Description
This 82-nucleotide sequence from Oryzias latipes belongs to the Rfam family "Small nucleolar RNA SNORD11B". A search with the family's covariance model found it, with a score of 52 bits. The family's consensus secondary structure was predicted with WAR. Rfam links the family to the GO terms RNA processing and nucleolus. For this family Rfam cites "snoSeeker: an advanced computational package for screening of guide and orphan snoRNA genes in the human genome" (Yang et al., Nucleic Acids Res, 2006). By type it is a C/D-box small nucleolar RNA. Its Rfam clan is "SNORD11 clan".

RNA sequence: GGCGGGCAAUGAUGAUGCGGACAAAACGUCGUUUUCCUGAAUCUGAUGACGGUUUUAAGUCACUACCUCUUCUGAGCUCAUA
Numbered sequence: 001g002g003c004g005g006g007c008a009a010u011g012a013u014g015a016u017g018c019g020g021a022c023a024a025a026a027c028g029u030c031g032u033u034u035u036c037c038u039g040a041a042u043c044u045g046a047u048g049a050c051g052g053u054u055u056u057a058a059g060u061c062a063c064u065a066c067c068u069c070u071u072c073u074g075a076g077c078u079c080a081u082a
Base pairs, nucleotide, nucleotide: 002081004079005078006077007076